[Rfam]
Shown here is a 78-nucleotide RNA sequence from Strongylocentrotus purpuratus, a member of the family "mir-9/mir-79 microRNA precursor family". The organism belongs to Strongylocentrotus, within Eukaryota. The base pairs follow the family's consensus structure, which was predicted with RNAalifold. Rfam 15.1 lists 5,647 matches to the family in 934 species. Its family is annotated with miRNA-mediated post-transcriptional gene silencing and RISC complex in the Gene Ontology.
RNA sequence: CUGCUUUUCUCUUUGGUUAUCUAGCUGUAUGAGUGAUGUCAAUGCAUCAUAAAGCUAGGUUACCAAAGAUAAGUGCCU
Number, nucleotide and partner (000 for none) at each position: 001c000002u000003g076004c075005u000006u000007u072008u071009c000010u069011c068012u067013u066014u065015g064016g063017u062018u000019a060020u059021c058022u057023a056024g055025c054026u053027g000028u051029a050030u049031g048032a047033g000034u000035g000036a000037u000038g000039u000040c000041a000042a000043u000044g000045c000046a000047u032048c031049a030050u029051a028052a000053a026054g025055c024056u023057a022058g021059g020060u019061u000062a017063c016064c015065a014066a013067a012068g011069a010070u000071a008072a007073g000074u000075g004076c003077c000078u000